[Rfam]
RNA sequence: CGAAUCCUGAUGUGUACGUGACUUGUUAAUCGAUUUUGACCGAACAUUUUAUCGUCGGGAGUCUGACUUUCACAAUAAAGAGCAUGCCAUCUCGGUGGACGCUUCGGCGUUGUGAAGAGGACACCCACCUGCUGAGUGCGGGUUCAAAACGAUAGCUUUACAGAGACGGCACGCUUGGGAUUCGU
Numbered sequence: 001c002g003a004a005u006c007c008u009g010a011u012g013u014g015u016a017c018g019u020g021a022c023u024u025g026u027u028a029a030u031c032g033a034u035u036u037u038g039a040c041c042g043a044a045c046a047u048u049u050u051a052u053c054g055u056c057g058g059g060a061g062u063c064u065g066a067c068u069u070u071c072a073c074a075a076u077a078a079a080g081a082g083c084a085u086g087c088c089a090u091c092u093c094g095g096u097g098g099a100c101g102c103u104u105c106g107g108c109g110u111u112g113u114g115a116a117g118a119g120g121a122c123a124c125c126c127a128c129c130u131g132c133u134g135a136g137u138g139c140g141g142g143u144u145c146a147a148a149a150c151g152a153u154a155g156c157u158u159u160a161c162a163g164a165g166a167c168g169g170c171a172c173g174c175u176u177g178g179g180a181u182u183c184g185u
Base pairs, nucleotide, nucleotide: 002183003182004181005180006179007178008177009176010175012172013171014170015169017168018167019166034149035148037146038145039144040142041141057126058125059124061122062121063120064119068116070115071114072113073112074111075110076109082102083101087098088097089096090095